A member of the RNA family "Bacterial RNase P class A" from Limnochorda pilosa, 352 nucleotides long. The source organism's lineage runs through Bacteria, Bacillati, Bacillota, Limnochordia and Limnochorda. It scores 311 bits against the family's covariance model. By type it is a ribozyme.
RNA sequence: CGAGCCGGCUGGGCGGUCGCGGGUGCAGUGCCGAAAGGCCGCAUCCGAGGAAAGUCCGAGCUCCGCAGGGCAGGGUGCUGGGUAACACCCAGUGGGGGCGACCCCAAGGAAAGUGCCACAGAAAAGAAACCGCCCGUCGCAAGGCGGGUAAGGCUGAAACGGUGAGGUAAGAGCUCACCAGCGGCCAGGUGACUGGUCGGCUUGGUAAACCCCACCCGGAGCAAGACCGAGCAGGAGGGAACGUGAGGUGGCCCGCCUCUCCCUCGGGUAGGUCGCUGGAGGUGCCAGGCGACUGGCAUCCUAGAUAGAUGAUCGCCUUCGACAGAACUCGGAUUACAGGCCGACUCGCCGC
Numbered sequence: 001c002g003a004g005c006c007g008g009c010u011g012g013g014c015g016g017u018c019g020c021g022g023g024u025g026c027a028g029u030g031c032c033g034a035a036a037g038g039c040c041g042c043a044u045c046c047g048a049g050g051a052a053a054g055u056c057c058g059a060g061c062u063c064c065g066c067a068g069g070g071c072a073g074g075g076u077g078c079u080g081g082g083u084a085a086c087a088c089c090c091a092g093u094g095g096g097g098g099c100g101a102c103c104c105c106a107a108g109g110a111a112a113g114u115g116c117c118a119c120a121g122a123a124a125a126g127a128a129a130c131c132g133c134c135c136g137u138c139g140c141a142a143g144g145c146g147g148g149u150a151a152g153g154c155u156g157a158a159a160c161g162g163u164g165a166g167g168u169a170a171g172a173g174c175u176c177a178c179c180a181g182c183g184g185c186c187a188g189g190u191g192a193c194u195g196g197u198c199g200g201c202u203u204g205g206u207a208a209a210c211c212c213c214a215c216c217c218g219g220a221g222c223a224a225g226a227c228c229g230a231g232c233a234g235g236a237g238g239g240a241a242c243g244u245g246a247g248g249u250g251g252c253c254c255g256c257c258u259c260u261c262c263c264u265c266g267g268g269u270a271g272g273u274c275g276c277u278g279g280a281g282g283u284g285c286c287a288g289g290c291g292a293c294u295g296g297c298a299u300c301c302u303a304g305a306u307a308g309a310u311g312a313u314c315g316c317c318u319u320c321g322a323c324a325g326a327a328c329u330c331g332g333a334u335u336a337c338a339g340g341c342c343g344a345c346u347c348g349c350c351g352c
Stems, first nucleotide, its partner, number of pairs: 001348004006343005011337001012317007020047007028039001052335002056332005061221004068254004073217005078092005093107001094105004108212002113210002115206003130153002132149007161179006181201001182199007225274004235265006245259005281300008